[Rfam]
RNA sequence: AGAACCGGGCUCCAGGUGAGAGGUGCCAUCUGUGUCUGAGGGGCAUGGCAAAUGGAACUGUCUCACACAGAAAUCGCACCCGUCACCUUGGGCCGCCUC
Numbered sequence: 001a002g003a004a005c006c007g008g009g010c011u012c013c014a015g016g017u018g019a020g021a022g023g024u025g026c027c028a029u030c031u032g033u034g035u036c037u038g039a040g041g042g043g044c045a046u047g048g049c050a051a052a053u054g055g056a057a058c059u060g061u062c063u064c065a066c067a068c069a070g071a072a073a074u075c076g077c078a079c080c081c082g083u084c085a086c087c088u089u090g091g092g093c094c095g096c097c098u099c
Base pairs, nucleotide, nucleotide: 012090014088015087016086018084019083022080023079024078025077026076029071030070031069032068033067034066037065038064039063040062041061
RNA: mir-342 microRNA precursor family
Organism: Erinaceus europaeus